[Rfam]
A member of the RNA family "Nuclear RNase P" from Brugia pahangi, 330 nucleotides long. NCBI's taxonomy places the organism under Eukaryota, Eumetazoa, Bilateria, Nematoda, Brugia. A search with the family's covariance model found it, with a score of 111 bits.
RNA sequence: GUGGUGGUAAGGUGACAAAAGGAGUAACGCACGGGUAUUUAAUUACCCAAUGAUAUUUCUCCUGGGAAGGUCUGAGAUUAGGUCCCAACCCGAUUUGGUUGGUUGUAUCCUCUAGCAGGGGAACGAUGCAAGCCGUCGUGGUGCCGUACCAGAAACUUGCCCUUGGUACCAAUCGCCCUAGAAGUACAAGACGGUUUUACCUAGUGCUAGGGAGAACCUGAUACGAUCGUGGUGAUGGUACUGAGUUUGAACCACGGUGCCGGUACUAGCUGCGCUGAGUGCGAUUGUCACCCACAUAUACGAACUCAAUUCAGACUACUCUAUCGCCAC
Numbered sequence: 001g002u003g004g005u006g007g008u009a010a011g012g013u014g015a016c017a018a019a020a021g022g023a024g025u026a027a028c029g030c031a032c033g034g035g036u037a038u039u040u041a042a043u044u045a046c047c048c049a050a051u052g053a054u055a056u057u058u059c060u061c062c063u064g065g066g067a068a069g070g071u072c073u074g075a076g077a078u079u080a081g082g083u084c085c086c087a088a089c090c091c092g093a094u095u096u097g098g099u100u101g102g103u104u105g106u107a108u109c110c111u112c113u114a115g116c117a118g119g120g121g122a123a124c125g126a127u128g129c130a131a132g133c134c135g136u137c138g139u140g141g142u143g144c145c146g147u148a149c150c151a152g153a154a155a156c157u158u159g160c161c162c163u164u165g166g167u168a169c170c171a172a173u174c175g176c177c178c179u180a181g182a183a184g185u186a187c188a189a190g191a192c193g194g195u196u197u198u199a200c201c202u203a204g205u206g207c208u209a210g211g212g213a214g215a216a217c218c219u220g221a222u223a224c225g226a227u228c229g230u231g232g233u234g235a236u237g238g239u240a241c242u243g244a245g246u247u248u249g250a251a252c253c254a255c256g257g258u259g260c261c262g263g264u265a266c267u268a269g270c271u272g273c274g275c276u277g278a279g280u281g282c283g284a285u286u287g288u289c290a291c292c293c294a295c296a297u298a299u300a301c302g303a304a305c306u307c308a309a310u311u312c313a314g315a316c317u318a319c320u321c322u323a324u325c326g327c328c329a330c
Stems, first nucleotide, its partner, number of pairs: 001330004007324003018286001020063005033048005072314005082266002084263002108122005123139006141260007161245001163243001